This 78-nucleotide sequence from Apteryx australis belongs to the Rfam family "Small nucleolar RNA SNORD87". Pairs were carried over by alignment from the consensus structure. Rfam classes the family as a C/D-box small nucleolar RNA. A reference for the family is Gogolevskaya et al. (2002), "U87 RNA, a novel C/D box small nucleolar RNA from mammalian cells", Gene. Taxonomically the source falls in Apteryx (Eukaryota, Vertebrata, Amniota, Archelosauria).

RNA sequence: GCUGGCAUAAUGAUGAUGACUUUUUGCUGUUUACCCAACUGAGUUUUUUGAUGAGUAACUUGUAUCUGAGGUGCCAGC
Numbered sequence: 001g002c003u004g005g006c007a008u009a010a011u012g013a014u015g016a017u018g019a020c021u022u023u024u025u026g027c028u029g030u031u032u033a034c035c036c037a038a039c040u041g042a043g044u045u046u047u048u049u050g051a052u053g054a055g056u057a058a059c060u061u062g063u064a065u066c067u068g069a070g071g072u073g074c075c076a077g078c
Stems, first nucleotide, its partner, number of pairs: 001078007